[Rfam]
RNA sequence: CUGUAAGGGGAAUGAUGUACUAUUAUCGGGCUCUUAAGAUGCUGGCUUUCCUUGAUUCUGCUUCUGAGAUGGACGUUAGGG
Numbered sequence: 001c002u003g004u005a006a007g008g009g010g011a012a013u014g015a016u017g018u019a020c021u022a023u024u025a026u027c028g029g030g031c032u033c034u035u036a037a038g039a040u041g042c043u044g045g046c047u048u049u050c051c052u053u054g055a056u057u058c059u060g061c062u063u064c065u066g067a068g069a070u071g072g073a074c075g076u077u078a079g080g081g
Stems, first nucleotide, its partner, number of pairs: 001081002004078003

Small nucleolar RNA J33: an 81-nucleotide RNA from Acer yangbiense. The pairing is the family consensus, mapped onto this sequence. The family's RNA type in Rfam is C/D-box small nucleolar RNA. Its family is annotated with RNA processing and nucleolus in the Gene Ontology. The literature on the family includes a 2003 paper in Nucleic Acids Res by Chen et al., "The high diversity of snoRNAs in plants: identification and comparative study of 120 snoRNA genes from Oryza sativa". Lineage of the source: Eukaryota > Streptophytina > Spermatophyta > Gunneridae > Acer.